Rfam assigns this 108-nucleotide RNA sequence from Anaerovirgula multivorans to the family "azaaromatic riboswitch aptamer (yjdF RNA)". Taxonomically the source falls in Anaerovirgula (Bacteria, Bacillati, Bacillota, Natronincolaceae). A search with the family's covariance model found it, with a score of 85 bits.
[Rfam]
RNA sequence: AAUGAUGGAGAUAAAAACACAGUUUCGGUUGGUAGUCCGAACCUAUCUAUAAUCAAUAGAUAGCAGUAACCUUCCCUCCUGGGGUUGUCCAUUUUCCAUUGAUGGUGA
Number, nucleotide and partner (000 for none) at each position: 001a000002a000003u000004g100005a099006u098007g097008g096009a095010g094011a093012u000013a000014a000015a000016a000017a000018c000019a000020c000021a000022g042023u041024u000025u040026c039027g038028g037029u000030u000031g000032g000033u000034a000035g000036u000037c028038c027039g026040a025041a023042c022043c063044u062045a061046u060047c059048u058049a057050u056051a000052a000053u000054c000055a000056a050057u049058a048059g047060a046061u045062a044063g043064c000065a000066g000067u000068a000069a000070c000071c000072u000073u000074c084075c083076c082077u000078c000079c000080u000081g000082g076083g075084g074085u000086u000087g000088u000089c000090c000091a000092u000093u011094u010095u009096c008097c007098a006099u005100u004101g000102a000103u000104g000105g000106u000107g000108a000